[Rfam]
RNA sequence: UGUUGAAAAAGGCAAAGCGGCGUGAAAACCCGUGACGCAAAGCCUCCGGUCUACCGUCUGUGUAGCAGACCACGAUAGCGGGGUUACCGAA
Numbered sequence: 001u002g003u004u005g006a007a008a009a010a011g012g013c014a015a016a017g018c019g020g021c022g023u024g025a026a027a028a029c030c031c032g033u034g035a036c037g038c039a040a041a042g043c044c045u046c047c048g049g050u051c052u053a054c055c056g057u058c059u060g061u062g063u064a065g066c067a068g069a070c071c072a073c074g075a076u077a078g079c080g081g082g083g084u085u086a087c088c089g090a091a
Base pairs, nucleotide, nucleotide: 012038013037017033018032019031020030022029023028041085042084043083044082046081047080048079049076050075051074056070057069058068059067

This 91-nucleotide sequence from Alteromonas confluentis belongs to the Rfam family "c-di-GMP-I riboswitch aptamer". It scores 74 bits against the family's covariance model.